[Rfam]
RNA sequence: CUGCAUGUUAAUCCAAGAGCUGUGGCUCUGACGUAGCUGCAGGUCUCCAACAACAUGCAAGAGCAACGGGAAGGUCUUUGACUGCUCGGCCUCUUCUGCCUGUUGCUGUCACUCACCCCUCCUAUAUAU
Numbered sequence: 001c002u003g004c005a006u007g008u009u010a011a012u013c014c015a016a017g018a019g020c021u022g023u024g025g026c027u028c029u030g031a032c033g034u035a036g037c038u039g040c041a042g043g044u045c046u047c048c049a050a051c052a053a054c055a056u057g058c059a060a061g062a063g064c065a066a067c068g069g070g071a072a073g074g075u076c077u078u079u080g081a082c083u084g085c086u087c088g089g090c091c092u093c094u095u096c097u098g099c100c101u102g103u104u105g106c107u108g109u110c111a112c113u114c115a116c117c118c119c120u121c122c123u124a125u126a127u128a129u
Stems, first nucleotide, its partner, number of pairs: 013042001018038007069122003073118002084109002087102001088100002

Description
This 129-nucleotide RNA belongs to the Rfam family "Small nucleolar RNA SNORA44". The family has 27 seed sequences and 1,056 matches in Rfam 15.1. It is one of the family's seed sequences. ACA44 is a member of the H/ACA class of snoRNA that guide the sites of modification of uridines to pseudouridines. Its Rfam clan is "SNORA44 clan". Rfam links the family to the GO terms nucleolus and RNA processing. The family's consensus secondary structure was predicted with PFOLD. By type it is an H/ACA-box small nucleolar RNA.